[Rfam]
RNA sequence: GAGCAUCCUUGAAAAACCCCCCAGUUGCUGCUUUUGGCCUCUGGGACAAGAAAGGAUGCAAGAUUAACCUUAGAAUUAUCCAAAACUAAGAGCUGUUUGAUGGUAUCUCUUAGUUAUUUCACCUCUAAGACAAAA
Numbered sequence: 001g002a003g004c005a006u007c008c009u010u011g012a013a014a015a016a017c018c019c020c021c022c023a024g025u026u027g028c029u030g031c032u033u034u035u036g037g038c039c040u041c042u043g044g045g046a047c048a049a050g051a052a053a054g055g056a057u058g059c060a061a062g063a064u065u066a067a068c069c070u071u072a073g074a075a076u077u078a079u080c081c082a083a084a085a086c087u088a089a090g091a092g093c094u095g096u097u098u099g100a101u102g103g104u105a106u107c108u109c110u111u112a113g114u115u116a117u118u119u120c121a122c123c124u125c126u127a128a129g130a131c132a133a134a135a
Stems, first nucleotide, its partner, number of pairs: 003059004009051002020045005027038002064134002069129006084115007092107001098103001
RNA: Small nucleolar RNA SNORA14
Organism: Oryzias javanicus